[Rfam]
RNA: Plastid-psbA-4 3UTR RNA
RNA sequence: UAAAUGAAGGAGCAAUACCAACCCUCUUAUUCUAUCAAGAGGGUCGGUAUUUCUCCUUCAA
Numbered sequence: 001u002a003a004a005u006g007a008a009g010g011a012g013c014a015a016u017a018c019c020a021a022c023c024c025u026c027u028u029a030u031u032c033u034a035u036c037a038a039g040a041g042g043g044u045c046g047g048u049a050u051u052u053c054u055c056c057u058u059c060a061a
Stems, first nucleotide, its partner, number of pairs: 006059007014051004021044002024041005